RNA sequence: AUUUGAAGCAUUGCACCCAGAGUCUGGACAUCAGACAUCGUACCUGGAGCUUUCUUUCCUUGAAUAAAAUGUGUU
Numbered sequence: 001a002u003u004u005g006a007a008g009c010a011u012u013g014c015a016c017c018c019a020g021a022g023u024c025u026g027g028a029c030a031u032c033a034g035a036c037a038u039c040g041u042a043c044c045u046g047g048a049g050c051u052u053u054c055u056u057u058c059c060u061u062g063a064a065u066a067a068a069a070u071g072u073g074u075u
Stems, first nucleotide, its partner, number of pairs: 005053005017047004022036005
Shown here is a 75-nucleotide sequence from Atractosteus spatula, a member of the family "U1A polyadenylation inhibition element (PIE)".
On this family, see Clerte and Hall, Biochemistry 2004: "Global and Local Dynamics of the U1A Polyadenylation Inhibition Element (PIE) RNA and PIE RNA-U1A Complexes".
Taxonomically the source falls in Atractosteus (Eukaryota, Eumetazoa, Deuterostomia, Actinopteri).
Rfam 15.1 lists 510 matches to the family in 331 species.
This family represents the U1A polyadenylation inhibition element (PIE). PIE is a regulatory RNA which is responsible for the regulation of the length of the polyA tail of the U1A pre-mRNA. The PIE is located in the U1A mRNA 3' UTR. PIE adopts a U-shaped structure, with binding sites for a single U1A protein at each bend and when complexed with the two proteins it blocks activity of poly(A) polymerase (PAP), and inhibits its activity.
By type it is a cis-regulatory element.
A search with the family's covariance model found it, with a score of 70 bits.
The base pairs follow the family's consensus structure, which is taken from published work.